[Rfam]
RNA sequence: UUUAACCACUAGGGGUGCAAUUUUUUGCUGAGAGAGGUUUUGAUGCCUUAACCCUUAUACCUGAUCUAGAUAAUACUAGCGGAGGGAAGUGGGUCAACUAUUCA
Numbered sequence: 001u002u003u004a005a006c007c008a009c010u011a012g013g014g015g016u017g018c019a020a021u022u023u024u025u026u027g028c029u030g031a032g033a034g035a036g037g038u039u040u041u042g043a044u045g046c047c048u049u050a051a052c053c054c055u056u057a058u059a060c061c062u063g064a065u066c067u068a069g070a071u072a073a074u075a076c077u078a079g080c081g082g083a084g085g086g087a088a089g090u091g092g093g094u095c096a097a098c099u100a101u102u103c104a
Base pairs, nucleotide, nucleotide: 006092007091008090009089010088011055012054013053014052017028018027019026020025035048036047037046038045060085061084062083066079067078068077069076
RNA: TPP riboswitch aptamer (THI element)